[Rfam]
RNA sequence: AACCUUUACAAAUUAAUCAAAUUAAGCGAUAAUAGUAAGUGCUAAUAUAGCUAUAGUAAUAAACGUAAUUUAGAAUAGAGGUUGCGGACUCGGGGGCAGUACCCGACGCCUCCACCAAUAAUGUGCUAUGUCAUUCCUGAAUGGAACAAAAGCCGUCUUCGGUGUCAUCCCGUGGCUUGUUAACUAGAUCCAGCAUAAAGCGAGAUAUAUCGAGCUUUUAAUUUUAAAAAGUUACUUUGUUUGUAAUUUUUACUGGAUCCCGUGGACAAGCCACGGGAUGACAAGCUCUAUAAGGCAAUGACAUAACAAUAAAAAUAGUGCAAUGACAGGGGGGCGAAAUAGGAUCGACGUGCCUAAUAAAAAAAUUGCUUUUACUCGGGAUGAUUCCGCCGCAGGCUUUUGCCUUACGGGUCAAAACAAAGAAACGCAAACGAUAACUAUCGUUCCGCAGGUACUCCAGCUUUAGCUGUAGCAUAAACCUGCACGGCUUGGGGGUUUGCCGGGUAACAGAAAAACCCUCA
Number, nucleotide and partner (000 for none) at each position: 001a000002a000003c000004c000005u000006u000007u000008a000009c000010a000011a000012a000013u000014u000015a000016a000017u000018c000019a000020a000021a000022u000023u000024a000025a000026g000027c000028g000029a000030u000031a000032a000033u000034a000035g000036u000037a000038a000039g000040u000041g051042c050043u049044a048045a000046u000047a000048u044049a043050g042051c041052u000053a000054u000055a376056g375057u374058a373059a372060u000061a000062a000063a000064c000065g369066u368067a367068a366069u365070u364071u363072a000073g000074a000075a000076u000077a000078g000079a000080g354081g353082u352083u000084g351085c350086g349087g000088a000089c000090u106091c105092g104093g103094g102095g000096g000097c000098a000099g000100u000101a000102c094103c093104c092105g091106a090107c336108g335109c334110c333111u332112c331113c330114a000115c000116c000117a000118a000119u000120a000121a000122u000123g000124u000125g000126c000127u000128a000129u000130g000131u000132c000133a000134u000135u000136c000137c000138u000139g000140a000141a000142u000143g000144g000145a000146a000147c000148a000149a000150a000151a000152g000153c000154c000155g000156u000157c000158u000159u000160c000161g000162g000163u000164g000165u000166c000167a000168u000169c000170c000171c000172g000173u000174g000175g000176c000177u000178u000179g000180u000181u000182a000183a000184c000185u000186a000187g000188a000189u000190c000191c000192a000193g000194c000195a000196u000197a000198a000199a000200g000201c000202g000203a000204g000205a000206u000207a000208u000209a000210u000211c000212g000213a000214g000215c000216u000217u000218u000219u000220a000221a000222u000223u000224u000225u000226a000227a000228a000229a000230a000231g000232u000233u000234a000235c000236u000237u000238u000239g000240u000241u000242u000243g000244u000245a000246a000247u000248u000249u000250u000251u000252a000253c000254u000255g000256g000257a000258u000259c000260c000261c000262g000263u000264g000265g000266a000267c000268a000269a000270g000271c000272c000273a000274c000275g000276g000277g000278a000279u000280g000281a000282c000283a000284a000285g000286c000287u000288c000289u000290a000291u000292a000293a000294g000295g000296c000297a000298a000299u000300g000301a000302c000303a000304u000305a000306a000307c000308a000309a000310u000311a000312a000313a000314a000315a000316u000317a000318g000319u000320g000321c000322a000323a000324u000325g000326a000327c000328a000329g000330g113331g112332g111333g110334g109335c108336g107337a000338a000339a000340u000341a000342g000343g000344a000345u000346c000347g000348a000349c086350g085351u084352g082353c081354c080355u000356a000357a000358u000359a000360a000361a000362a000363a071364a070365a069366u068367u067368g066369c065370u000371u000372u059373u058374a057375c056376u055377c392378g391379g390380g000381a000382u414383g413384a412385u000386u411387c410388c409389g000390c379391c378392g377393c000394a000395g000396g000397c000398u000399u000400u000401u000402g000403c000404c000405u000406u000407a000408c000409g388410g387411g386412u384413c383414a382415a000416a000417a000418c000419a000420a000421a000422g000423a000424a000425a000426c000427g000428c000429a000430a000431a000432c000433g000434a000435u000436a000437a000438c000439u000440a000441u000442c000443g000444u000445u000446c000447c000448g000449c000450a000451g000452g000453u000454a000455c000456u000457c000458c000459a000460g000461c000462u000463u000464u000465a000466g000467c000468u000469g000470u000471a000472g000473c000474a000475u000476a000477a000478a000479c000480c000481u000482g000483c000484a000485c502486g501487g500488c499489u000490u000491g000492g519493g518494g517495g516496u515497u514498u000499g488500c487501c486502g485503g000504g000505u000506a000507a000508c000509a000510g000511a000512a000513a000514a497515a496516c495517c494518c493519u492520c000521a000